This 392-nucleotide part of an RNA from Pseudovirgaria hyperparasitica belongs to the Rfam family "Eukaryotic large subunit ribosomal RNA". The base pairs follow the family's consensus structure, which is taken from published work. A reference for the family is Cannone et al. (2002), "The comparative RNA web (CRW) site: an online database of comparative sequence and structure information for ribosomal, intron, and other RNAs", BMC Bioinformatics. The organism belongs to Pseudovirgaria, within Eukaryota.

[Rfam]
RNA sequence: AAAUGUUACUCUAAUAGUAAUUCCACUUAGUACGAGAGGAACCGCGGAUUUAGAUAAUUAGUUUUUACGGCUAUCCGACCGGGCAUUACCGCGAAGCUACCAUCUACUAGAUUAUAGCUGAACGCCUCUAAGUUAGAAUCCAUACUAGAAAAGGGUAAUUCCUUCUUACACGUAGCAGUUAGAUAUGAAUAGGUUCUAGACCUAGAACCUUAGUAGACUAGUAAUAGCUACCUCUUUAAAGCUAAGGUAGCUAGCUAGUAUCUUAUAAUUUGGUAGCGUGUAGGGUGAGAUCCCUUAUAGACGACUUAGUUAUCUAAGUCGGUCGUGUAAGUAGUCGAGUAGCCUUGUUGUUACGAGCUACUGAGCGUAAUCCGAUCCUCAGCUUGAUUUGU
Numbered sequence: 001a002a003a004u005g006u007u008a009c010u011c012u013a014a015u016a017g018u019a020a021u022u023c024c025a026c027u028u029a030g031u032a033c034g035a036g037a038g039g040a041a042c043c044g045c046g047g048a049u050u051u052a053g054a055u056a057a058u059u060a061g062u063u064u065u066u067a068c069g070g071c072u073a074u075c076c077g078a079c080c081g082g083g084c085a086u087u088a089c090c091g092c093g094a095a096g097c098u099a100c101c102a103u104c105u106a107c108u109a110g111a112u113u114a115u116a117g118c119u120g121a122a123c124g125c126c127u128c129u130a131a132g133u134u135a136g137a138a139u140c141c142a143u144a145c146u147a148g149a150a151a152a153g154g155g156u157a158a159u160u161c162c163u164u165c166u167u168a169c170a171c172g173u174a175g176c177a178g179u180u181a182g183a184u185a186u187g188a189a190u191a192g193g194u195u196c197u198a199g200a201c202c203u204a205g206a207a208c209c210u211u212a213g214u215a216g217a218c219u220a221g222u223a224a225u226a227g228c229u230a231c232c233u234c235u236u237u238a239a240a241g242c243u244a245a246g247g248u249a250g251c252u253a254g255c256u257a258g259u260a261u262c263u264u265a266u267a268a269u270u271u272g273g274u275a276g277c278g279u280g281u282a283g284g285g286u287g288a289g290a291u292c293c294c295u296u297a298u299a300g301a302c303g304a305c306u307u308a309g310u311u312a313u314c315u316a317a318g319u320c321g322g323u324c325g326u327g328u329a330a331g332u333a334g335u336c337g338a339g340u341a342g343c344c345u346u347g348u349u350g351u352u353a354c355g356a357g358c359u360a361c362u363g364a365g366c367g368u369a370a371u372c373c374g375a376u377c378c379u380c381a382g383c384u385u386g387a388u389u390u391g392u
Stems, first nucleotide, its partner, number of pairs: 005159008015147004020050001022048003026044001051106005059099003066093001068091003072085001074083003108142001110140001115135005165284007288390005293309001314382002317379002320374003324367002331361004336357001339354005